[Rfam]
The family of this 434-nucleotide part of an RNA from Capsaspora owczarzaki is "Eukaryotic large subunit ribosomal RNA".
The base pairs follow the family's consensus structure, which is taken from published work.
Gene Ontology terms of the family: structural constituent of ribosome and ribosome.
RNA sequence: CGAUUGAAGCUAGCAUUUGCGUUGCGUGAAAUCAGUCGUAAGACUGCCGAACUGUGCGUUGUGCGGUGAGCCAAAAGCCACGGCGGCGUAUUGAGGUGAGGUGUCUUGCGGUGCACUUUUACGUAGCUUUGAGCAGGUCAGCAUCGGUUUGGUUUUGUGCAGCAAACGGCGUGCUGGGAAGGUGAGUUUACUGUCGGUUCGCUGACUUUGAACUGUUAUAGCCCAGUGUCUGCCCGCUGCGCCCCAGACCGAGGUGGUUGCGGCAUGUGUUCUCUUCGGAGGGCUAGCCUCCCUGUUCAAUGGCUGUUCGUGUUGGAUUUAUUGCUAAACGGCAAUGUGUUUGACAUUUGCAGUGGUCAUUGGGUGGGGUUGUGUAUACGUGAAUGCCUAGGAUGCUGACGAAAUGGCUUUAACCGACCCGUCUUGAAACACGG
Dot-bracket structure: ((.(((((((((....(..((((.((...............................................................................................................................................................................................................................)).)))))...((((((..............................................................................................................................))))))......))))))))).))..((((........))))